[Rfam]
RNA sequence: AUACUGUGAUGCUUGCAUAGUUCAGCAGAUUGAAUUCUGAAGAAAUGUACCACUUGUCUGAUGUAUCU
Numbered sequence: 001a002u003a004c005u006g007u008g009a010u011g012c013u014u015g016c017a018u019a020g021u022u023c024a025g026c027a028g029a030u031u032g033a034a035u036u037c038u039g040a041a042g043a044a045a046u047g048u049a050c051c052a053c054u055u056g057u058c059u060g061a062u063g064u065a066u067c068u
Base pairs, nucleotide, nucleotide: 001066002065003064004063006038008036009035010034013028014027015026016025043055044054046052047051
Small nucleolar RNA SNORD77: a 68-nucleotide sequence from Myotis lucifugus. It is one of the family's seed sequences. Taxonomically the source falls in Myotis (Eukaryota, Opisthokonta, Deuterostomia, Laurasiatheria).